[Rfam]
Overview:
Burkholderia sRNA Bp1_Cand684_SIPHT: a 109-nucleotide RNA from Paraburkholderia sp. DHOC27. The organism belongs to Paraburkholderia, within Bacteria. A search with the family's covariance model found it, with a score of 69 bits. The family has 14 seed sequences and 176 matches in Rfam 15.1. For this family Rfam cites "Computational discovery and RT-PCR validation of novel Burkholderia conserved and Burkholderia pseudomallei unique sRNAs" (Khoo et al., BMC Genomics, 2012).
RNA sequence: AGAAAAGUAGGUGCUGCCCCGCACAGGGGCGACGCAAAUAGACCGACAUGAAAGCAGGUUCAACGACGAGCGCGGAUGACCACAAAACCGCGCCGCCGGCAUUCAUCAC
Number, nucleotide and partner (000 for none) at each position: 001a000002g000003a000004a000005a000006a000007g000008u000009a000010g000011g000012u074013g073014c072015u031016g030017c029018c028019c027020c026021g000022c000023a000024c000025a000026g020027g019028g018029g017030c016031g015032a000033c000034g000035c000036a000037a000038a000039u000040a000041g000042a000043c000044c000045g000046a000047c000048a000049u000050g000051a000052a000053a000054g000055c000056a000057g000058g067059u066060u065061c000062a000063a000064c000065g060066a059067c058068g000069a000070g000071c000072g014073c013074g012075g000076a000077u000078g000079a000080c000081c000082a000083c000084a000085a000086a000087a000088c000089c000090g000091c000092g100093c099094c000095g000096c000097c000098g000099g093100c092101a000102u000103u000104c000105a000106u000107c000108a000109c000